Ribosomal protein L20 leader: a 133-nucleotide RNA from Halolactibacillus alkaliphilus.

RNA sequence: UUAGACAAGUAGAGGCACCCGCUUCUCGCCUGAUCGACACAAUCAAUGUAGUUGCCAGGUUAUCACAUUCUGAAUUUUUGAAGAUGACAGGAUAUGUGUGGGUGCUUCCAAGUACCGACACUUUUUUUAUUGU
Numbered sequence: 001u002u003a004g005a006c007a008a009g010u011a012g013a014g015g016c017a018c019c020c021g022c023u024u025c026u027c028g029c030c031u032g033a034u035c036g037a038c039a040c041a042a043u044c045a046a047u048g049u050a051g052u053u054g055c056c057a058g059g060u061u062a063u064c065a066c067a068u069u070c071u072g073a074a075u076u077u078u079u080g081a082a083g084a085u086g087a088c089a090g091g092a093u094a095u096g097u098g099u100g101g102g103u104g105c106u107u108c109c110a111a112g113u114a115c116c117g118a119c120a121c122u123u124u125u126u127u128u129a130u131u132g133u
Base pairs, nucleotide, nucleotide: 011026012025013024014023015022016021028060029059030058036053037052038051039049040048097120098119099118101116102115103114104113105112106111

A search with the family's covariance model found it, with a score of 77 bits. Its family is annotated with regulation of gene expression in the Gene Ontology. Rfam describes the family as follows. This family is a putative r-protein leader autoregulatory structure found in B. subtilis and other low-GC Gram-positive bacteria. It is located in the 5' untranslated regions of mRNAs encoding initiation factor 3 followed by ribosomal proteins L35 and L20 (infC-rpmI-rplT). A Rho-independent transcription terminator structure that is probably involved in regulation is included at the 3' end. Lineage of the source: Bacteria > Bacillati > Bacilli > Bacillaceae > Halolactibacillus. The base pairs follow the family's consensus structure, which was predicted with CMfinder. For this family Rfam cites "Diverse mechanisms for regulating ribosomal protein synthesis in Escherichia coli" (Zengel and Lindahl, Prog Nucleic Acid Res Mol Biol, 1994).